[Rfam]
RNA sequence: AGGCAACAAUGAUGAUAGGUUGUCGGUCUGUAUGUAAUGUGUUGUAUUACUACAUGGAGACACCAGUCCCUCUAAGCUGACGUUGCCA
Number, nucleotide and partner (000 for none) at each position: 001a000002g087003g086004c085005a084006a083007c082008a000009a000010u000011g000012a000013u000014g000015a000016u000017a000018g000019g000020u000021u000022g000023u000024c000025g000026g000027u000028c000029u000030g000031u000032a000033u000034g000035u000036a000037a000038u000039g000040u000041g000042u000043u000044g000045u000046a000047u000048u000049a000050c000051u000052a000053c000054a000055u000056g000057g000058a000059g000060a000061c000062a000063c000064c000065a000066g000067u000068c000069c000070c000071u000072c000073u000074a000075a000076g000077c000078u000079g000080a000081c000082g007083u006084u005085g004086c003087c002088a000
RNA: Small nucleolar RNA SNORD127
Organism: Crocodylus porosus